[Rfam]
RNA sequence: GGUGUAAAGGGAGCGUAGACGGAUGGAUAAGUCUGAAGUGAAAGCCCGCGGCUCAACUGCGGGACUGCUUUGGAAACUGUGCAUCUUGAGUACGGGAGGGGCAGGCGGAAUUCCUGGUGUAGCGGUGAAAUGCGUAGAUAUCAGGAGGAACACCGGCGGCGAAGGCGGCCUGCUGGACCGAAACUGACGUUGAGGCUCGAAAGCGUGGGGAGCAAACAGGAUUAGAUACCCUGGUAGUCCACGCCGUAAACGAUGAAUACUAGGUGUGAGGGGACUAAGUCUCCUGGUGCCGAAGCAAACGCAUUAAGUAUUCCACCUGGGGAGUACGUUCGCAAGAAUGAAACUCAAAGGAAU
Number, nucleotide and partner (000 for none) at each position: 001g317002g316003u315004g000005u000006a000007a000008a000009g314010g000011g198012a197013g196014c195015g000016u192017a000018g191019a190020c189021g000022g085023a084024u083025g082026g000027a080028u079029a000030a078031g077032u074033c073034u072035g071036a070037a069038g068039u067040g066041a000042a000043a000044g000045c063046c062047c061048g060049c059050g058051g057052c000053u000054c000055a000056a000057c051058u050059g049060c048061g047062g046063g045064a000065c000066u040067g039068c038069u037070u036071u035072g034073g033074a032075a000076a000077c031078u030079g028080u027081g000082c025083a024084u023085c022086u000087u000088g000089a185090g184091u183092a000093c180094g179095g178096g000097a000098g000099g000100g174101g173102c172103a171104g170105g169106c168107g151108g000109a000110a000111u147112u146113c145114c144115u143116g142117g141118u140119g000120u000121a000122g133123c132124g131125g000126u000127g000128a000129a000130a000131u124132g123133c122134g000135u000136a000137g000138a000139u000140a118141u117142c116143a115144g114145g113146a112147g111148g000149a000150a000151c107152a000153c000154c000155g000156g000157c000158g000159g166160c165161g000162a000163a000164g000165g160166c159167g000168g106169c105170c104171u103172g102173c101174u100175g000176g000177a000178c095179c094180g093181a000182a000183a091184c090185u089186g000187a000188c000189g020190u019191u018192g016193a000194g000195g014196c013197u012198c011199g000200a000201a000202a000203g244204c243205g242206u241207g240208g239209g000210g000211a000212g238213c237214a000215a000216a000217c233218a232219g231220g230221a000222u000223u000224a000225g000226a000227u000228a000229c000230c220231c219232u218233g217234g000235u000236a000237g213238u212239c208240c207241a206242c205243g204244c203245c000246g000247u000248a000249a000250a000251c000252g000253a000254u000255g313256a312257a311258u310259a309260c308261u000262a000263g291264g290265u289266g288267u287268g000269a285270g284271g283272g282273g281274a280275c000276u000277a000278a000279g000280u274281c273282u272283c271284c270285u269286g000287g267288u266289g265290c264291c263292g000293a000294a000295g302296c301297a000298a000299a000300c000301g296302c295303a000304u000305u000306a000307a000308g260309u259310a258311u257312u256313c255314c009315a003316c002317c001318u000319g346320g345321g344322g000323a000324g000325u000326a000327c000328g339329u338330u337331c336332g000333c000334a000335a000336g331337a330338a329339u328340g000341a000342a000343a000344c321345u320346c319347a000348a000349a000350g000351g000352a000353a000354u000
Rfam assigns this 354-nucleotide part of an RNA from bacterium 1XD8-76 to the family "Bacterial small subunit ribosomal RNA". A search with the family's covariance model found it, with a score of 1545 bits. For this family Rfam cites "Crystal structure of the ribosome at 5.5 A resolution" (Yusupov et al., Science, 2001). The base pairs follow the family's consensus structure, which is taken from published work.